Rfam assigns this 33-nucleotide RNA sequence from Caldanaerobacter subterraneus to the family "PreQ1 (pre queuosine) riboswitch aptamer". Taxonomically the source falls in Caldanaerobacter subterraneus (Bacteria, Bacillota, Thermoanaerobacterales, Thermoanaerobacteraceae). This family is a bacterial riboswitch that binds to the metabolite preQ1, an intermediate in the biosynthesis of the modified nucleoside queuosine from GTP. One example of this riboswitch is located in the leader of the Bacillus subtilis ykvJKLM (queCDEF) operon which encodes four genes necessary for queuosine production. PreQ1 binding to the riboswitch aptamer is thought to induce premature transcription termination within the leader to down-regulate expression of these genes.
RNA sequence: CUGGGUCGCAGUAACCCCAGUUAACAAAACAAG
Number, nucleotide and partner (000 for none) at each position: 001c020002u019003g018004g017005g016006u000007c000008g000009c000010a000011g000012u000013a000014a000015c000016c005017c004018c003019a002020g001021u000022u000023a000024a000025c000026a000027a000028a000029a000030c000031a000032a000033g000

The sequence is in the family's curated seed alignment.